[Rfam]
RNA sequence: CUCUUAUCAAGAGUGGUGGAGGGACUGGCCCGAUGAAACCCGGCAACCUACUGUGCAUGCACGGUGUGGUGCCAAUUCCUGCAGAGUAAAAAUCUCUGGCAGAUGAGAG
Numbered sequence: 001c002u003c004u005u006a007u008c009a010a011g012a013g014u015g016g017u018g019g020a021g022g023g024a025c026u027g028g029c030c031c032g033a034u035g036a037a038a039c040c041c042g043g044c045a046a047c048c049u050a051c052u053g054u055g056c057a058u059g060c061a062c063g064g065u066g067u068g069g070u071g072c073c074a075a076u077u078c079c080u081g082c083a084g085a086g087u088a089a090a091a092a093u094c095u096c097u098g099g100c101a102g103a104u105g106a107g108a109g
Stems, first nucleotide, its partner, number of pairs: 001109008013041001015040003021031003025081001027079002042073004047069002050065004077101001082098005
Rfam assigns this 109-nucleotide sequence from Melghirimyces algeriensis to the family "SAM riboswitch aptamer (S box leader)". The family's consensus secondary structure is taken from published work. NCBI's taxonomy places the organism under Bacteria, Bacillota, Caryophanales, Thermoactinomycetaceae, Melghirimyces. The match comes from Rfam's covariance-model search (94 bits).